[Rfam]
RNA sequence: AAUCGGCCUACCAUACAAGGGACGUGCUCCCUAAGAUGGUGCCGAGGGAAACGAACCUCAGCAAAUUACUAUUAUAGGAAAGCUGAAACAUCAAGUGUUGGGUGGAGUUUGGUAGGCCAGCAAUGGCUCGAAGAAGUCAGACCCA
Numbered sequence: 001a002a003u004c005g006g007c008c009u010a011c012c013a014u015a016c017a018a019g020g021g022a023c024g025u026g027c028u029c030c031c032u033a034a035g036a037u038g039g040u041g042c043c044g045a046g047g048g049a050a051a052c053g054a055a056c057c058u059c060a061g062c063a064a065a066u067u068a069c070u071a072u073u074a075u076a077g078g079a080a081a082g083c084u085g086a087a088a089c090a091u092c093a094a095g096u097g098u099u100g101g102g103u104g105g106a107g108u109u110u111g112g113u114a115g116g117c118c119a120g121c122a123a124u125g126g127c128u129c130g131a132a133g134a135a136g137u138c139a140g141a142c143c144c145a
Stems, first nucleotide, its partner, number of pairs: 003045005011039004018032005047057002058086005069077003099145005105138002108135003115128005